[Rfam]
RNA sequence: UUAGUAUUCUCAGGUGGGCCUAGGUCCUACAGAAGAAUCUUGGGGUUACACCUAUAAGGGGAUCUGG
Number, nucleotide and partner (000 for none) at each position: 001u067002u066003a065004g064005u000006a063007u062008u061009c060010u059011c058012a000013g000014g055015u054016g053017g052018g051019c044020c043021u042022a041023g040024g030025u029026c000027c000028u000029a025030c024031a000032g000033a000034a000035g000036a000037a000038u000039c000040u023041u022042g021043g020044g019045g000046u000047u000048a000049c000050a000051c018052c017053u016054a015055u014056a000057a000058g011059g010060g009061g008062a007063u006064c004065u003066g002067g001
The family of this 67-nucleotide sequence from Phascolarctos cinereus is "MAT2A 3'UTR stem loop E". The family's consensus secondary structure is taken from published work. The family has 28 seed sequences and 337 matches in Rfam 15.1. NCBI's taxonomy places the organism under Eukaryota, Chordata, Euteleostomi, Amniota, Phascolarctos. The family's RNA type in Rfam is cis-regulatory element. It scores 46 bits against the family's covariance model.